The record is a 94-nucleotide RNA sequence from Denticeps clupeoides, which matches "mir-217 microRNA precursor family" in Rfam. The match comes from Rfam's covariance-model search (80 bits). For this family Rfam cites "Vertebrate microRNA genes" (Lim et al., Science, 2003). Its family is annotated with miRNA-mediated post-transcriptional gene silencing and RISC complex in the Gene Ontology.
RNA sequence: UGUUAUAUGAUGUUGGUGAUACUGCAUCAGGAACUGACUGGAUGCUGUUUCGGGAGCCAUCAGUUCUUGAUGCACUGCCCCCAGCACCGAAAUG
Numbered sequence: 001u002g003u004u005a006u007a008u009g010a011u012g013u014u015g016g017u018g019a020u021a022c023u024g025c026a027u028c029a030g031g032a033a034c035u036g037a038c039u040g041g042a043u044g045c046u047g048u049u050u051c052g053g054g055a056g057c058c059a060u061c062a063g064u065u066c067u068u069g070a071u072g073c074a075c076u077g078c079c080c081c082c083a084g085c086a087c088c089g090a091a092a093u094g
Base pairs, nucleotide, nucleotide: 023074024073025072026071027070029068030067031066032065033064034063035062036061037060039059040058041057